[Rfam]
RNA sequence: CCCCUUGAGACGACGCCUCCGCCGCCCUAUCUUGGCGCCGUCCGGCAACGGACUAUGGGCAUAAACGCGCGCGGAAUAAGCGGAUCGGACCCGGGGGCGGUACCCGGCGGCUCCACCAGAUACCUCUCGUUGGGGGGACCAGGGGGCCGAAACAGGAUCGACGACCGUGUAAAGGCGUGGCUUUGUCCCGGUGAGGUACCACCGUUAUCGGUCCAAAACGCAUAGUUGCCAACGACAACCGUGCUCCGGCGAUGGCCCUCGCCGCCUAACGGCGGAAAGGUCCAGAGCCAAAGUCCCGGGGAAUAAGCCCCUCGGGCGGGGUCCGCAGGCACCUGGCAACAGAAGCCUGCACU
Numbered sequence: 001c002c003c004c005u006u007g008a009g010a011c012g013a014c015g016c017c018u019c020c021g022c023c024g025c026c027c028u029a030u031c032u033u034g035g036c037g038c039c040g041u042c043c044g045g046c047a048a049c050g051g052a053c054u055a056u057g058g059g060c061a062u063a064a065a066c067g068c069g070c071g072c073g074g075a076a077u078a079a080g081c082g083g084a085u086c087g088g089a090c091c092c093g094g095g096g097g098c099g100g101u102a103c104c105c106g107g108c109g110g111c112u113c114c115a116c117c118a119g120a121u122a123c124c125u126c127u128c129g130u131u132g133g134g135g136g137g138a139c140c141a142g143g144g145g146g147c148c149g150a151a152a153c154a155g156g157a158u159c160g161a162c163g164a165c166c167g168u169g170u171a172a173a174g175g176c177g178u179g180g181c182u183u184u185g186u187c188c189c190g191g192u193g194a195g196g197u198a199c200c201a202c203c204g205u206u207a208u209c210g211g212u213c214c215a216a217a218a219c220g221c222a223u224a225g226u227u228g229c230c231a232a233c234g235a236c237a238a239c240c241g242u243g244c245u246c247c248g249g250c251g252a253u254g255g256c257c258c259u260c261g262c263c264g265c266c267u268a269a270c271g272g273c274g275g276a277a278a279g280g281u282c283c284a285g286a287g288c289c290a291a292a293g294u295c296c297c298g299g300g301g302a303a304u305a306a307g308c309c310c311c312u313c314g315g316g317c318g319g320g321g322u323c324c325g326c327a328g329g330c331a332c333c334u335g336g337c338a339a340c341a342g343a344a345g346c347c348u349g350c351a352c353u
Base pairs, nucleotide, nucleotide: 040053041052042051043050044049057188058187059186060185061184067181068180069178070177071176072175081167082166083165085164086163087162091107092106093105094104095103108149109148110147111146112145113144114143189204190203191202192201195214196213198212199211200210319334320333321332322331325350326349327348328347329346330345
RNA: Alphaproteobacteria transfer-messenger RNA